The family of this 188-nucleotide sequence from Antribacter soli is "c-di-AMP riboswitch aptamer (ydaO/yuaA leader)".
[Rfam]
RNA sequence: CUCGUACGGACGCCGAACCCUGUCACCGUCCGAGGCACCACAACCCGCAUGACAGGGGCGGGGGACCCAAUUUGGGCGCCAGGGUGCGUCCUCGGGGUGAAGUCGGGCGGUUCUCGGGCCGCUCGACCGGGUGCUUUCUCCCACCCGAACCCGACAGCUGACCUCGUAGGCGUACAAGGAGAGGUACA
Numbered sequence: 001c002u003c004g005u006a007c008g009g010a011c012g013c014c015g016a017a018c019c020c021u022g023u024c025a026c027c028g029u030c031c032g033a034g035g036c037a038c039c040a041c042a043a044c045c046c047g048c049a050u051g052a053c054a055g056g057g058g059c060g061g062g063g064g065a066c067c068c069a070a071u072u073u074g075g076g077c078g079c080c081a082g083g084g085u086g087c088g089u090c091c092u093c094g095g096g097g098u099g100a101a102g103u104c105g106g107g108c109g110g111u112u113c114u115c116g117g118g119c120c121g122c123u124c125g126a127c128c129g130g131g132u133g134c135u136u137u138c139u140c141c142c143a144c145c146c147g148a149a150c151c152c153g154a155c156a157g158c159u160g161a162c163c164u165c166g167u168a169g170g171c172g173u174a175c176a177a178g179g180a181g182a183g184g185u186a187c188a
Base pairs, nucleotide, nucleotide: 011172012171013170014169018057019056020055021054022053023052024051025050058167059166060165061164062163063162068094095152096151097150103126104125105124106123107122108121109120110119129146130145131144132143